[Rfam]
RNA sequence: ACGUCCUUAACGGCGCGUUAACCAUUCUCGGAUAGGAAUCGGGCAUCCAGGUCUCUCCCUGGAUGCCGAGUGGCUCUGAAGCCCACUCUGUUCGACGCUUCCCUGUUAGACUUGAAGAGCCGCUCCGAGCGGCUCGAUUUUU
Numbered sequence: 001a002c003g004u005c006c007u008u009a010a011c012g013g014c015g016c017g018u019u020a021a022c023c024a025u026u027c028u029c030g031g032a033u034a035g036g037a038a039u040c041g042g043g044c045a046u047c048c049a050g051g052u053c054u055c056u057c058c059c060u061g062g063a064u065g066c067c068g069a070g071u072g073g074c075u076c077u078g079a080a081g082c083c084c085a086c087u088c089u090g091u092u093c094g095a096c097g098c099u100u101c102c103c104u105g106u107u108a109g110a111c112u113u114g115a116a117g118a119g120c121c122g123c124u125c126c127g128a129g130c131g132g133c134u135c136g137a138u139u140u141u142u
Stems, first nucleotide, its partner, number of pairs: 002041002004013002014036001019034002022031002045064007068088006094107004117135008

A member of the RNA family "Alphaproteobacterial sRNA BjrC1505" from Microvirga sp. VF16, 142 nucleotides long. The match comes from Rfam's covariance-model search (73 bits). It is annotated as a small RNA. The source organism's lineage runs through Bacteria, Pseudomonadota, Hyphomicrobiales, Methylobacteriaceae and Microvirga.